Rfam assigns this 78-nucleotide RNA sequence from Sphingomonas xinjiangensis to the family "chrB-a RNA".
Rfam 15.1 lists 347 matches to the family in 339 species.
The organism belongs to Sphingomonas, within Bacteria.
Rfam classes the family as a cis-regulatory element.
The base pairs follow the family's consensus structure, which is taken from published work.
RNA sequence: GAUAUGGGGACUGCGAUUUCCCCACGAGGCGUCAGCUGAAGAAUCGCGUCCAGCUCACUACGCCAAGGACGCGUCAUG
Numbered sequence: 001g002a003u004a005u006g007g008g009g010a011c012u013g014c015g016a017u018u019u020c021c022c023c024a025c026g027a028g029g030c031g032u033c034a035g036c037u038g039a040a041g042a043a044u045c046g047c048g049u050c051c052a053g054c055u056c057a058c059u060a061c062g063c064c065a066a067g068g069a070c071g072c073g074u075c076a077u078g
Stems, first nucleotide, its partner, number of pairs: 005024006046072006